[Rfam]
RNA sequence: GGAUGAGGUAGAGGUGCGUCAAAGAUGAGUACACAAUGUGAGGAUGACAACUGUGAUCAUUGUUGAAAGGCUUUUUCGCCGAAGCAUGGAUAAGCGUCAAGCUUAUGUAUUGCUGGGGUUGCCUUGAAUAAGGGUAACACUGUCAUUAUGGAAACGAAUUAGGUUUCUAUAAUGGAGGGCUACUGAUCGU
Number, nucleotide and partner (000 for none) at each position: 001g000002g000003a000004u000005g000006a000007g184008g183009u182010a181011g180012a000013g000014g000015u000016g079017c078018g077019u000020c000021a074022a073023a072024g071025a000026u000027g000028a000029g000030u000031a000032c000033a063034c062035a061036a060037u059038g058039u000040g000041a000042g000043g000044a000045u000046g000047a000048c000049a000050a000051c000052u000053g000054u000055g000056a000057u000058c038059a037060u036061u035062g034063u033064u000065g000066a000067a000068a000069g000070g000071c024072u023073u022074u021075u000076u000077c018078g017079c016080c000081g000082a000083a114084g113085c112086a111087u109088g108089g000090a106091u105092a104093a103094g102095c000096g000097u000098c000099a000100a000101g000102c094103u093104u092105a091106u090107g000108u088109a087110u000111u086112g085113c084114u083115g141116g140117g000118g138119u137120u136121g135122c134123c133124u132125u131126g000127a000128a000129u000130a000131a125132g124133g123134g122135u121136a120137a119138c118139a000140c116141u115142g000143u175144c174145a173146u172147u171148a170149u169150g168151g167152a166153a165154a164155c000156g000157a000158a000159u000160u000161a000162g000163g000164u154165u153166u152167c151168u150169a149170u148171a147172a146173u145174g144175g143176a000177g000178g000179g000180c011181u010182a009183c008184u007185g000186a000187u000188c000189g000190u000
Rfam assigns this 190-nucleotide sequence from Metabacillus arenae to the family "Lysine riboswitch aptamer".
It scores 113 bits against the family's covariance model.
Gene Ontology term of the family: lysine biosynthetic process.